[Rfam]
Nucleotides: 336
Base pairs, nucleotide, nucleotide: 001336002335003334004333009331010330011329012328013327014326015325016324018322019321020320035059036058037057038056039055044049060087061086062085063084064083065082066081067080068079069078070077071076088092100315101314102313103312105310106309107307108306111125112124113123128163129162130161131160132159133158134157135156136153140149141148142147166302167301168300169299171232172231173230176229177228178225179224180223181222182221185220186219187218191214192213196209197208198207199206200205233251234250235249236248237247238246252256262289272288273287274286275285276284277283
Number, partner (000 for none) and nucleotide at each position: 001336u002335g003334a004333g005000a006000g007000a008000a009331c010330u011329a012328u013327g014326c015325u016324g017000a018322a019321g020320g021000a022000a023000c024000u025000c026000g027000g028000c029000a030000a031000u032000u033000u034000a035059c036058c037057u038056c039055c040000g041000u042000a043000a044049c045000u046000u047000c048000g049044g050000g051000a052000u053000a054000a055039g056038g057037a058036g059035g060087c061086c062085c063084a064083g065082u066081g067080c068079u069078u070077a071076g072000g073000c074000a075000a076071c077070u078069a079068g080067g081066c082065a083064u084063u085062g086061g087060g088092g089000g090000c091000a092088c093000a094000g095000a096000c097000c098000a099000g100315g101314g102313g103312g104000u105310a106309g107307c108306g109000a110000c111125u112124g113123u114000u115000u116000a117000a118000c119000u120000a121000a122000a123113a124112c125111a126000c127000a128163g129162g130161g131160c132159u133158c134157u135156g136153c137000g138000a139000a140149a141148u142147c143000g144000u145000a146000a147142g148141a149140u150000g151000a152000c153136g154000u155000a156135u157134a158133g159132g160131g161130u162129c163128u164000g165000a166302c167301g168300c169299c170000u171232g172231c173230c174000c175000g176229g177228u178225g179224c180223c181222g182221g183000a184000a185220g186219g187218u188000u189000a190000a191214a192213a193000g194000g195000a196209g197208g198207u199206g200205u201000g202000c203000a204000a205200g206199c207198a208197c209196c210000g211000a212000a213192u214191u215000g216000a217000a218187g219186c220185c221182c222181c223180g224179g225178u226000a227000a228177a229176c230173g231172g232171c233251g234250g235249c236248c237247g238246u239000a240000a241000c242000u243000a244000u245000a246238a247237c248236g249235g250234u251233c252256c253000u254000a255000a256252g257000g258000u259000a260000g261000c262289g263000a264000a265000a266000u267000u268000c269000c270000u271000u272288g273287u274286c275285g276284g277283g278000u279000a280000a281000g282000u283277u284276c285275c286274g287273a288272c289262c290000u291000g292000c293000a294000c295000g296000a297000a298000u299169g300168g301167c302166g303000u304000a305000a306108c307107g308000a309106c310105u311000u312103c313102c314101c315100c316000g317000c318000u319000g320020u321019c322018u323000c324016c325015a326014g327013c328012a329011u330010a331009g332000a333004c334003u335002c336001a